The record is a 121-nucleotide RNA, which matches "LOOT RNA" in Rfam. By type it is a small RNA. Rfam's curators put it in the seed alignment. Pairs were carried over by alignment from the consensus structure, which is taken from published work.
RNA sequence: UGCCUAAACCCGUAAUCUUCGGGCAUGGCAAUAAAACUCGGUAAGAGAUAUUAAGCUCGUCGUCAGAGCUACUCUUACCGAGUCAUAUCCCGAAAGGGGUAUGGGUGGCCGAAAGGCUAUC
Number, nucleotide and partner (000 for none) at each position: 001u030002g029003c028004c027005u000006a000007a000008a000009c023010c022011c021012g020013u000014a000015a000016u000017c000018u000019u000020c012021g011022g010023g009024c000025a000026u000027g004028g003029c002030a001031a000032u000033a000034a000035a000036a000037c082038u081039c080040g079041g078042u077043a076044a075045g074046a073047g072048a000049u000050a000051u000052u000053a000054a070055g069056c068057u067058c000059g000060u000061c000062g000063u000064c000065a000066g000067a057068g056069c055070u054071a000072c047073u046074c045075u044076u043077a042078c041079c040080g039081a038082g037083u000084c103085a102086u101087a100088u099089c098090c097091c096092g000093a000094a000095a000096g091097g090098g089099g088100u087101a086102u085103g084104g121105g120106u119107g118108g117109c116110c000111g000112a000113a000114a000115g000116g109117c108118u107119a106120u105121c104